RNase MRP: a 249-nucleotide sequence from Daphnia galeata. Lineage of the source: Eukaryota > Metazoa > Eumetazoa > Pancrustacea > Daphnia. Rfam links the family to the GO terms ribonuclease MRP activity, rRNA processing and ribonuclease MRP complex.
RNA sequence: UAAUGUCUUGUCAGCCUUCUCUACUCGAACACAUACGGAUUACUAGUUGAUCAACACAUUCGGGAGGAAAGUCCCCGGACCUAGGCCAGAAAGUGGCUCAAAUGAGAGUAGCAACCUGCCUCUAGCAGAUUCUGACGGCCAAGAUGAACUUCAGUUCUAGCCAUCUGUGAGCCAGGCGAUCGUCAUAGCACAGCAAUAGAAGGAGCUGUAGUACAGCUAACACAACGGGGCUCAUUCGACAAGAACGUU
Numbered sequence: 001u002a003a004u005g006u007c008u009u010g011u012c013a014g015c016c017u018u019c020u021c022u023a024c025u026c027g028a029a030c031a032c033a034u035a036c037g038g039a040u041u042a043c044u045a046g047u048u049g050a051u052c053a054a055c056a057c058a059u060u061c062g063g064g065a066g067g068a069a070a071g072u073c074c075c076c077g078g079a080c081c082u083a084g085g086c087c088a089g090a091a092a093g094u095g096g097c098u099c100a101a102a103u104g105a106g107a108g109u110a111g112c113a114a115c116c117u118g119c120c121u122c123u124a125g126c127a128g129a130u131u132c133u134g135a136c137g138g139c140c141a142a143g144a145u146g147a148a149c150u151u152c153a154g155u156u157c158u159a160g161c162c163a164u165c166u167g168u169g170a171g172c173c174a175g176g177c178g179a180u181c182g183u184c185a186u187a188g189c190a191c192a193g194c195a196a197u198a199g200a201a202g203g204a205g206c207u208g209u210a211g212u213a214c215a216g217c218u219a220a221c222a223c224a225a226c227g228g229g230g231c232u233c234a235u236u237c238g239a240c241a242a243g244a245a246c247g248u249u
Base pairs, nucleotide, nucleotide: 002249003248004247005246006245008242009241010240011239012238015203016202017201018200019199020198024064025063026062027061028060029059038052039051040050041049042048070232071231073230074229075228076227085097086096087095088094099104111177116175117174118173120171121170125168126167127166128165137162138161139160146156147155205217206216207215208214209213
Dot-bracket structure: .(((((.(((((..((((((...((((((........(((((.....)))))......)))))).....[[.[[[[........((((.....)))).(....)......(....(((.((...((((........(((......((.......))...)))..)))).)).))).)....................)))))).(((((...))))).........]]]]]].....)))))..)))))

Pairs were carried over by alignment from the consensus structure, which is taken from published work.